[Rfam]
Shown here is a 114-nucleotide sequence from Paenibacillus selenitireducens, a member of the family "Glycine riboswitch aptamer". NCBI's taxonomy places the organism under Bacteria, Bacillati, Bacilli, Caryophanales, Paenibacillus. The base pairs follow the family's consensus structure. A search with the family's covariance model found it, with a score of 62 bits.
RNA sequence: GGACAGGACUCUGGAGAGACUCCGUGGAUGGAGCACCGAAGGGGCAAUACGCGAUCAGGGAACAGUAUCUUAUGACGCGUUAAAACUCUCAGGUAAAAGGACAGGGAUUGCAAG
Numbered sequence: 001g002g003a004c005a006g007g008a009c010u011c012u013g014g015a016g017a018g019a020c021u022c023c024g025u026g027g028a029u030g031g032a033g034c035a036c037c038g039a040a041g042g043g044g045c046a047a048u049a050c051g052c053g054a055u056c057a058g059g060g061a062a063c064a065g066u067a068u069c070u071u072a073u074g075a076c077g078c079g080u081u082a083a084a085a086c087u088c089u090c091a092g093g094u095a096a097a098a099g100g101a102c103a104g105g106g107a108u109u110g111c112a113a114g
Base pairs, nucleotide, nucleotide: 006109007108009106010105011104012103013102020033021032022031023030035094036093037092038090039089042088043087044086048082049081